[Rfam]
Rfam assigns this 104-nucleotide RNA sequence from Exiguobacterium artemiae to the family "SAM riboswitch aptamer (S box leader)".
RNA sequence: UUUUUAUCGCGAGAGACGGAGGGACUGGCCCGAUGAUGUUUCGGCAGCGGACGAUUAAAUCGUACUGUGCCAAAUCCAGCAAGCUGCGGCUUGAGAGAUAAGAA
Numbered sequence: 001u002u003u004u005u006a007u008c009g010c011g012a013g014a015g016a017c018g019g020a021g022g023g024a025c026u027g028g029c030c031c032g033a034u035g036a037u038g039u040u041u042c043g044g045c046a047g048c049g050g051a052c053g054a055u056u057a058a059a060u061c062g063u064a065c066u067g068u069g070c071c072a073a074a075u076c077c078a079g080c081a082a083g084c085u086g087c088g089g090c091u092u093g094a095g096a097g098a099u100a101a102g103a104a
Stems, first nucleotide, its partner, number of pairs: 001104008013042005021031003025079004043071004048067002051063003075096001080093004

The base pairs follow the family's consensus structure, which is taken from published work.